A member of the RNA family "RNA Staph. aureus E (RoxS)" from Paenisporosarcina sp. HGH0030, 106 nucleotides long. Taxonomically the source falls in Paenisporosarcina (Bacteria, Bacillota, Bacilli, Caryophanaceae). Rfam describes the family as follows. It was shown to be regulated by the presence of nitric oxide (NO). In Bacillus subtilis it controls expression of genes with functions related to oxidative stress and oxidation-reduction reactions and it was renamed RoxS (for related to oxidative stress). It scores 83 bits against the family's covariance model. Gene Ontology term of the family: regulation of translational initiation.
RNA sequence: GUGAAAUAAAUCACACACAAACAUACACCCCUUUGUUUGAACGUGAACAUUUCUCCCAUCCCCUUUGUGAAAAGAACCGUCACUCCAGAAAUGGAAGGACGGUUCU
Numbered sequence: 001g002u003g004a005a006a007u008a009a010a011u012c013a014c015a016c017a018c019a020a021a022c023a024u025a026c027a028c029c030c031c032u033u034u035g036u037u038u039g040a041a042c043g044u045g046a047a048c049a050u051u052u053c054u055c056c057c058a059u060c061c062c063c064u065u066u067g068u069g070a071a072a073a074g075a076a077c078c079g080u081c082a083c084u085c086c087a088g089a090a091a092u093g094g095a096a097g098g099a100c101g102g103u104u105c106u
Base pairs, nucleotide, nucleotide: 003053004052005051006050007049011046012045013044014043018039019038020037021036022035023034076103077102078101079100080099081098084095085094086093